[Rfam]
RNA sequence: CGAGAGGUUGGCGCGGGCGGACGCCUCGCCAACCCGGUCAGGUCCGGAAGGAAGCAGCCGUAACGAGUCCCGUCUGGGUCGUCGUCCAGCCUCUCACCC
Number, nucleotide and partner (000 for none) at each position: 001c000002g000003a000004g093005a092006g091007g090008u089009u000010g086011g085012c084013g083014c081015g080016g000017g000018c076019g075020g074021a073022c072023g071024c000025c067026u066027c065028g064029c000030c000031a000032a000033c000034c000035c060036g059037g058038u057039c000040a000041g000042g000043u052044c051045c050046g000047g000048a000049a000050g045051g044052a043053a000054g000055c000056a000057g038058c037059c036060g035061u000062a000063a000064c028065g027066a026067g025068u000069c000070c000071c023072g022073u021074c020075u019076g018077g000078g000079u000080c015081g014082u000083c013084g012085u011086c010087c000088a000089g008090c007091c006092u005093c004094u000095c000096a000097c000098c000099c000
RNA: Bacterial small signal recognition particle RNA
Organism: Paracoccus sp. S-4012